The family of this 226-nucleotide RNA sequence from Streptomyces sp. BA2 is "Actinobacteria sRNA Ms_IGR-5". The organism belongs to Streptomyces, within Bacteria. For this family Rfam cites "Identification of small RNAs in Mycobacterium smegmatis using heterologous Hfq" (Li et al., RNA, 2013). A search with the family's covariance model found it, with a score of 74 bits.
RNA sequence: UCACGGAGAGGAGGUGGUUCGGCAGAUGUAUGGAAACCGGACGCGUGAGGUGACUGCGGGCUAGUGGCCCGUCGUCGCAACUCGAUUUCGGCGCCGGACCAGCACGUGUGAUGUGCGUGCAGCCGGCCCAAUCCCAAGCAGUCACCCGACCCGCGAGCCGCCGGUGAGUCCGGCCGGCCUCCCGCCGUUCCGUACGGCGGGGACCACGGCUCGCGGGUCGUCUGCG
Numbered sequence: 001u002c003a004c005g006g007a008g009a010g011g012a013g014g015u016g017g018u019u020c021g022g023c024a025g026a027u028g029u030a031u032g033g034a035a036a037c038c039g040g041a042c043g044c045g046u047g048a049g050g051u052g053a054c055u056g057c058g059g060g061c062u063a064g065u066g067g068c069c070c071g072u073c074g075u076c077g078c079a080a081c082u083c084g085a086u087u088u089c090g091g092c093g094c095c096g097g098a099c100c101a102g103c104a105c106g107u108g109u110g111a112u113g114u115g116c117g118u119g120c121a122g123c124c125g126g127c128c129c130a131a132u133c134c135c136a137a138g139c140a141g142u143c144a145c146c147c148g149a150c151c152c153g154c155g156a157g158c159c160g161c162c163g164g165u166g167a168g169u170c171c172g173g174c175c176g177g178c179c180u181c182c183c184g185c186c187g188u189u190c191c192g193u194a195c196g197g198c199g200g201g202g203a204c205c206a207c208g209g210c211u212c213g214c215g216g217g218u219c220g221u222c223u224g225c226g
Stems, first nucleotide, its partner, number of pairs: 014057005059128004064123002067120002070117001072115001147220013160178006
Dot-bracket structure: .............(((((..................................))))).((((.((.((.(.(..........................................).).)).)).))))..................(((((((((((((((((((.......)))))).............................)))))))))))))......